[Rfam]
RNA sequence: CCGGGAUGAUAAAAAAAUUGCCAUGAAAAAUUGUAAAAUUUUUCAUAUACAUCACUAUUUGCGGGAAAACCCUAAAAUUUUUUUAUAGAAUUUAUGAAAACUUAGCUUGACUAUUUUAAAUUGUCAUUAUUAUUAAGUGUACAUGAAUCUUAAAUAUUAAAAAGAAUAGAACAUAAAACUGAAAUAUAAUGAUUUUUGUUUAUAUGAAAAAAUGGGCAAUCCGCAGGAAACCAAAAUAAGAAAAAUAUAUAUUUUUUCUUAUGAGUAGGAUCCUCAGAGACUAUACGUGAUGCUCCAUUAUAAAGAUAAAAAUUUAUAAUAAUGGAUGAAGAUAUAGUCCAGUCCGUCACGAAAGUGACUG
Numbered sequence: 001c002c003g004g005g006a007u008g009a010u011a012a013a014a015a016a017a018u019u020g021c022c023a024u025g026a027a028a029a030a031u032u033g034u035a036a037a038a039u040u041u042u043u044c045a046u047a048u049a050c051a052u053c054a055c056u057a058u059u060u061g062c063g064g065g066a067a068a069a070c071c072c073u074a075a076a077a078u079u080u081u082u083u084u085a086u087a088g089a090a091u092u093u094a095u096g097a098a099a100a101c102u103u104a105g106c107u108u109g110a111c112u113a114u115u116u117u118a119a120a121u122u123g124u125c126a127u128u129a130u131u132a133u134u135a136a137g138u139g140u141a142c143a144u145g146a147a148u149c150u151u152a153a154a155u156a157u158u159a160a161a162a163a164g165a166a167u168a169g170a171a172c173a174u175a176a177a178a179c180u181g182a183a184a185u186a187u188a189a190u191g192a193u194u195u196u197u198g199u200u201u202a203u204a205u206g207a208a209a210a211a212a213u214g215g216g217c218a219a220u221c222c223g224c225a226g227g228a229a230a231c232c233a234a235a236a237u238a239a240g241a242a243a244a245a246u247a248u249a250u251a252u253u254u255u256u257u258c259u260u261a262u263g264a265g266u267a268g269g270a271u272c273c274u275c276a277g278a279g280a281c282u283a284u285a286c287g288u289g290a291u292g293c294u295c296c297a298u299u300a301u302a303a304a305g306a307u308a309a310a311a312a313u314u315u316a317u318a319a320u321a322a323u324g325g326a327u328g329a330a331g332a333u334a335u336a337g338u339c340c341a342g343u344c345c346g347u348c349a350c351g352a353a354a355g356u357g358a359c360u361g
Base pairs, nucleotide, nucleotide: 002025003024005022007020008019009018010017029040030039031038050292051291052290053289055287060225061224062223063222064221065220070216071215072214226273227272231268233266237261238260239259240258241257242256243255244254245253277340279339280338281337282336283335294326295325296324297323298322299321300320301319346359347358348357349356350355
Rfam assigns this 361-nucleotide RNA sequence from Coemansia spiralis to the family "Group I catalytic intron". Gene Ontology term of the family: Group I intron splicing.